The record is a 556-nucleotide part of an RNA from Bulleidia extructa, which matches "Bacterial large subunit ribosomal RNA" in Rfam. Pairs were carried over by alignment from the consensus structure, which is taken from published work. The sequence is in the family's curated seed alignment. Gene Ontology terms of the family: ribosome and structural constituent of ribosome.
[Rfam]
RNA sequence: GAAUAAGAGCGUACGGUGGAUGUCUUGGCAUAUAGAGCAGAAGAAGGACGCAGCAAACGGCGAAACGCCUCGGGGAGUCGUACACAGGCAACGAUCCGGGGGUAUCCGAAUGGGGGAACCCGAUACAUAGGAAAUGAUGUAUCACCCAUAAGCCAAUACAUAACUUAUGAGGAGAAAACCCAGUGAAUUGAAACAUCUUAGUAACUGGAGGAAAAGAAAAUAAGAAUGAUUCCGAGAGUAGUGGCGAGCGAAAUUGGAAGAGCCCAAACCAGCUAUGAGCUGGGGUAGUAGGACCACGAGAUGGUACAGAUGAAGAUAGCCGAAUGAGAUUGAAAGCUCAGUCGCAGAAGGUGCAAGCCCUGUAGGCGAAAUUUUCAAAUGACCUAGUGGGAUCCUGAGUACGUCGGGGCACGUGGAACCCUGACGGAAGCAACCGGGACCAUCCGGUAAGGCUAAAUACUCCUAUAUGACCGAUAGUGAACCAGUACCAUGAGGGAAAGAUGAAAAGAACCGCGGGAGCGGAGUGAAAUAGAUCCUGAAACCGUAUGCUUACAAA
Numbered sequence: 001g002a003a004u005a006a007g008a009g010c011g012u013a014c015g016g017u018g019g020a021u022g023u024c025u026u027g028g029c030a031u032a033u034a035g036a037g038c039a040g041a042a043g044a045a046g047g048a049c050g051c052a053g054c055a056a057a058c059g060g061c062g063a064a065a066c067g068c069c070u071c072g073g074g075g076a077g078u079c080g081u082a083c084a085c086a087g088g089c090a091a092c093g094a095u096c097c098g099g100g101g102g103u104a105u106c107c108g109a110a111u112g113g114g115g116g117a118a119c120c121c122g123a124u125a126c127a128u129a130g131g132a133a134a135u136g137a138u139g140u141a142u143c144a145c146c147c148a149u150a151a152g153c154c155a156a157u158a159c160a161u162a163a164c165u166u167a168u169g170a171g172g173a174g175a176a177a178a179c180c181c182a183g184u185g186a187a188u189u190g191a192a193a194c195a196u197c198u199u200a201g202u203a204a205c206u207g208g209a210g211g212a213a214a215a216g217a218a219a220a221u222a223a224g225a226a227u228g229a230u231u232c233c234g235a236g237a238g239u240a241g242u243g244g245c246g247a248g249c250g251a252a253a254u255u256g257g258a259a260g261a262g263c264c265c266a267a268a269c270c271a272g273c274u275a276u277g278a279g280c281u282g283g284g285g286u287a288g289u290a291g292g293a294c295c296a297c298g299a300g301a302u303g304g305u306a307c308a309g310a311u312g313a314a315g316a317u318a319g320c321c322g323a324a325u326g327a328g329a330u331u332g333a334a335a336g337c338u339c340a341g342u343c344g345c346a347g348a349a350g351g352u353g354c355a356a357g358c359c360c361u362g363u364a365g366g367c368g369a370a371a372u373u374u375u376c377a378a379a380u381g382a383c384c385u386a387g388u389g390g391g392a393u394c395c396u397g398a399g400u401a402c403g404u405c406g407g408g409g410c411a412c413g414u415g416g417a418a419c420c421c422u423g424a425c426g427g428a429a430g431c432a433a434c435c436g437g438g439a440c441c442a443u444c445c446g447g448u449a450a451g452g453c454u455a456a457a458u459a460c461u462c463c464u465a466u467a468u469g470a471c472c473g474a475u476a477g478u479g480a481a482c483c484a485g486u487a488c489c490a491u492g493a494g495g496g497a498a499a500g501a502u503g504a505a506a507a508g509a510a511c512c513g514c515g516g517g518a519g520c521g522g523a524g525u526g527a528a529a530u531a532g533a534u535c536c537u538g539a540a541a542c543c544g545u546a547u548g549c550u551u552a553c554a555a556a
Base pairs, nucleotide, nucleotide: 007551008550009549010548011547012546013545014544015543016542022536023501024500027472028471029469030468031467032466033465034464035463036461037460038174046107047106048105049062050061051060068101069100070099071098072097073096074095077089078088079087112121113120114119122143123142124141125140126139127138128137145171147169148168149167150166151165152164179210180208181207182206183205184204190197191196220227221226230457231258232257233256234255235254241249242248261454262453263452264451269283270282271281272280273279274278290396291395292394294390295389296388297387307381308380311377312376313375314374315373316372317371319367320366321365325340326339327338328337343347349361350360351359402426403425404424405423406422407421408420409419433448434447435446436445437444488495489494511522512521513520514519